[Rfam]
The record is a 113-nucleotide RNA sequence from Enterobacteriaceae bacterium strain FGI 57, which matches "tp2" in Rfam. NCBI's taxonomy places the organism under Bacteria, Pseudomonadati, Pseudomonadota, Enterobacterales, Enterobacteriaceae. Pairs were carried over by alignment from the consensus structure, which was predicted with RNAalifold. It is annotated as a small RNA. For this family Rfam cites "Computational identification of noncoding RNAs in E. coli by comparative genomics" (Rivas et al., Curr Biol, 2001).
RNA sequence: GGUUUUCCUUAUCUAUCUAGUACGUUGAUUUAUCUGGAACCUGUCCCAUUGUGCUUUCAGUGGAAAACACAAUAAGACAGGUUCUGUGUUUAGUUGCCGCGCACUUUUAUUGG
Numbered sequence: 001g002g003u004u005u006u007c008c009u010u011a012u013c014u015a016u017c018u019a020g021u022a023c024g025u026u027g028a029u030u031u032a033u034c035u036g037g038a039a040c041c042u043g044u045c046c047c048a049u050u051g052u053g054c055u056u057u058c059a060g061u062g063g064a065a066a067a068c069a070c071a072a073u074a075a076g077a078c079a080g081g082u083u084c085u086g087u088g089u090u091u092a093g094u095u096g097c098c099g100c101g102c103a104c105u106u107u108u109a110u111u112g113g
Base pairs, nucleotide, nucleotide: 001098002097003096022089023088024087025086036085037084038083039082040081041080042079043078044077045076048073049072050071051070052069055066056065057064058063